This 105-nucleotide RNA sequence from Saliniradius amylolyticus belongs to the Rfam family "Ribosomal S15 leader".
For this family Rfam cites "Pseudoknot and translational control in the expression of the S15 ribosomal protein" (Benard et al., Biochimie, 1996).
Gene Ontology term of the family: regulation of translation, ncRNA-mediated.
The base pairs follow the family's consensus structure, which is taken from published work.
The family's RNA type in Rfam is cis-regulatory leader.

[Rfam]
RNA sequence: UCGACAGGCUGAAUUAGUGAUCGGCCUGUCUCACUAUUGGAGUAAGCUAUGUCACUAACGAAACAAGAAACUGCACAAAUUGUUGCCGAAUACGGUCAGGGCGAG
Numbered sequence: 001u002c003g004a005c006a007g008g009c010u011g012a013a014u015u016a017g018u019g020a021u022c023g024g025c026c027u028g029u030c031u032c033a034c035u036a037u038u039g040g041a042g043u044a045a046g047c048u049a050u051g052u053c054a055c056u057a058a059c060g061a062a063a064c065a066a067g068a069a070a071c072u073g074c075a076c077a078a079a080u081u082g083u084u085g086c087c088g089a090a091u092a093c094g095g096u097c098a099g100g101g102c103g104a105g
Stems, first nucleotide, its partner, number of pairs: 007026006037058004042053001

It scores 72 bits against the family's covariance model.
The family is grouped with related families in Rfam's "Ribosomal Protein S15 Leader clan".